Rfam assigns this 67-nucleotide RNA sequence from Gossypium gossypioides to the family "Plastid-clpP 5UTR RNA". Rfam describes the family as follows. Plastid clpP is a non-coding RNA (ncRNA) recognised in plastids. It was found in the prime untranslated region (5UTR) of a protease complex subunit (clpP) in plastids, suggesting a posible cis-regulatory function.
RNA sequence: CAUUGUUUUGAUUGAUAAAGAAAAAUAGAUCUAUUCUAUACCCGAUAAGUAUCAAUACACAAUGGGG
Number, nucleotide and partner (000 for none) at each position: 001c000002a000003u020004u017005g016006u015007u014008u000009u000010g000011a000012u000013u000014g007015a006016u005017a004018a000019a000020g003021a000022a000023a000024a000025a000026u000027a000028g000029a000030u000031c000032u000033a000034u000035u000036c000037u000038a000039u000040a000041c066042c065043c064044g000045a000046u000047a000048a000049g058050u057051a056052u000053c000054a000055a000056u051057a050058c049059a000060c000061a000062a000063u000064g043065g042066g041067g000